Description
The record is an 80-nucleotide RNA sequence from Colocasia esculenta, which matches "Small nucleolar RNA J33" in Rfam. Rfam classes the family as a C/D-box small nucleolar RNA. The literature on the family includes a 2003 paper in Nucleic Acids Res by Chen et al., "The high diversity of snoRNAs in plants: identification and comparative study of 120 snoRNA genes from Oryza sativa". The match comes from Rfam's covariance-model search (93 bits). Taxonomically the source falls in Colocasia (Eukaryota, Streptophytina, Mesangiospermae, Aroideae).

RNA sequence: CUGUGAGAGGAAUGAUGUACUAUUACAGGGCUCUCAAGAUGCUGGCCUUUCUUGAUUCUGCAUCUGAGAUGGACAUACGG
Numbered sequence: 001c002u003g004u005g006a007g008a009g010g011a012a013u014g015a016u017g018u019a020c021u022a023u024u025a026c027a028g029g030g031c032u033c034u035c036a037a038g039a040u041g042c043u044g045g046c047c048u049u050u051c052u053u054g055a056u057u058c059u060g061c062a063u064c065u066g067a068g069a070u071g072g073a074c075a076u077a078c079g080g
Base pairs, nucleotide, nucleotide: 001080002079003078004077005076

Rfam links the family to the GO terms nucleolus and RNA processing.